The family of this 67-nucleotide sequence from Parnassius apollo is "Mammalian CPEB3 ribozyme". From the family's description: The mammalian CPEB3 ribozyme is a self cleaving RNA located in the second intron of the CPEB3 gene which belongs to a family of genes regulating messenger RNA polyadenylation. It scores 41 bits against the family's covariance model. The family's consensus secondary structure is taken from published work. The family has 14 seed sequences and 5,706 matches in Rfam 15.1. On this family, see Salehi-Ashtiani et al., Science 2006: "A genomewide search for ribozymes reveals an HDV-like sequence in the human CPEB3 gene".
[Rfam]
RNA sequence: UUUGAAUCAUUGGGGGUCAUUGUAGAAGCAUGCUCGUCGCGACCCCUGCCAGGGGUGCAAUUCUACA
Numbered sequence: 001u002u003u004g005a006a007u008c009a010u011u012g013g014g015g016g017u018c019a020u021u022g023u024a025g026a027a028g029c030a031u032g033c034u035c036g037u038c039g040c041g042a043c044c045c046c047u048g049c050c051a052g053g054g055g056u057g058c059a060a061u062u063c064u065a066c067a
Stems, first nucleotide, its partner, number of pairs: 013046006021067007028040002050057002